Nucleotides: 137
Stems, first nucleotide, its partner, number of pairs: 002060005015046003018041007080129001082127001085125001088122003096116005102111002
Number, partner (000 for none) and nucleotide at each position: 001000u002060g003059g004058a005057g006056g007000c008000c009000g010000a011000g012000a013000a014000a015046g016045u017044g018041a019040g020039g021038u022037g023036g024035c025000u026000c027000u028000g029000u030000a031000c032000u033000g034000u035024g036023c037022u038021g039020c040019c041018u042000u043000c044017c045016a046015c047000c048000g049000g050000u051000u052000a053000a054000g055000u056006c057005c058004u059003c060002c061000g062000a063000g064000a065000g066000c067000a068000a069000a070000u071000g072000g073000c074000u075000g076000c077000c078000c079000a080129g081000a082127c083000a084000g085125g086000u087000u088122a089121u090120g091000u092000c093000c094000c095000u096116u097115u098114g099113c100112c101000a102111c103110u104000c105000u106000c107000a108000g109000a110103g111102g112100g113099g114098c115097a116096g117000c118000a119000c120090u121089g122088u123000c124000c125085u126000g127082g128000c129080c130000a131000a132000c133000a134000u135000u136000u137000g
The record is a 137-nucleotide sequence from Heterocephalus glaber, which matches "Small nucleolar RNA SNORA47" in Rfam. Rfam classes the family as an H/ACA-box small nucleolar RNA. It scores 116 bits against the family's covariance model.